[Rfam]
RNA sequence: UUUGAUGCAAUGAUUAUAAGUAAUUCUUCAUACUAGCUAGUUUUGUCAUUGGCAUGACACACACAAAUAUAUACAUACAUAUAUAUACACA
Numbered sequence: 001u002u003u004g005a006u007g008c009a010a011u012g013a014u015u016a017u018a019a020g021u022a023a024u025u026c027u028u029c030a031u032a033c034u035a036g037c038u039a040g041u042u043u044u045g046u047c048a049u050u051g052g053c054a055u056g057a058c059a060c061a062c063a064c065a066a067a068u069a070u071a072u073a074c075a076u077a078c079a080u081a082u083a084u085a086u087a088c089a090c091a
Stems, first nucleotide, its partner, number of pairs: 003091002006089002